This 99-nucleotide sequence from Musa acuminata belongs to the Rfam family "MIR398 microRNA precursor family". The source organism's lineage runs through Eukaryota, Spermatophyta, Magnoliopsida, Liliopsida and Musa acuminata. It scores 55 bits against the family's covariance model. Pairs were carried over by alignment from the consensus structure, which was predicted with WAR.

[Rfam]
RNA sequence: GUAGAUCGCAAAGGAGUGCUACCGGAGAACACAGAAUCAAGUGCCAAACCGAGACUUGCCACUUCGUCUGUGUUCUCAGGUCACCCCUUUGUGUCACCU
Numbered sequence: 001g002u003a004g005a006u007c008g009c010a011a012a013g014g015a016g017u018g019c020u021a022c023c024g025g026a027g028a029a030c031a032c033a034g035a036a037u038c039a040a041g042u043g044c045c046a047a048a049c050c051g052a053g054a055c056u057u058g059c060c061a062c063u064u065c066g067u068c069u070g071u072g073u074u075c076u077c078a079g080g081u082c083a084c085c086c087c088u089u090u091g092u093g094u095c096a097c098c099u
Stems, first nucleotide, its partner, number of pairs: 007093002011089004016084003025077010